Record summary:
Shown here is a 127-nucleotide sequence from Halomonas beimenensis, a member of the family "Ribosomal S15 leader".

RNA sequence: CGUGGAGACUGCAAAUAUGCGUGGUCUCCGUACAUUCAUCACUCAGGCAUAUUGCUGACUGGAGAGACAGAUGGCACUGACCGCUGAACAGAAGGCCGCAAUCGUCAACGAAUACGGCCGUGGCGAC
Number, nucleotide and partner (000 for none) at each position: 001c000002g000003u000004g000005g000006a000007g026008a025009c024010u023011g022012c021013a000014a000015a000016u000017a000018u000019g000020c000021g012022u011023g010024g009025u008026c007027u000028c000029c000030g000031u000032a000033c000034a000035u000036u000037c000038a000039u000040c000041a000042c000043u000044c000045a000046g000047g000048c000049a000050u080051a000052u000053u000054g000055c000056u000057g000058a000059c000060u000061g078062g077063a000064g075065a000066g000067a000068c000069a000070g000071a000072u000073g000074g000075c064076a000077c062078u061079g000080a050081c000082c000083g000084c000085u000086g000087a000088a000089c000090a000091g000092a000093a000094g000095g000096c000097c000098g000099c000100a000101a000102u000103c000104g000105u000106c000107a000108a000109c000110g000111a000112a000113u000114a000115c000116g000117g000118c000119c000120g000121u000122g000123g000124c000125g000126a000127c000

It scores 51 bits against the family's covariance model. It is annotated as a cis-regulatory leader. The E. coli Ribosomal S15 gene 5' UTR can form two alternative structures. One that is a series of three hairpins, The other includes a pseudoknot. This structure causes translational regulation of the S15 protein. The alignment of this family contains only the final two hairpins which are conserved in other species, and also includes the complete region that forms the alternate structures. The literature on the family includes a 1996 paper in Biochimie by Benard et al., "Pseudoknot and translational control in the expression of the S15 ribosomal protein". Taxonomically the source falls in Halomonas (Bacteria, Pseudomonadota, Gammaproteobacteria, Oceanospirillales).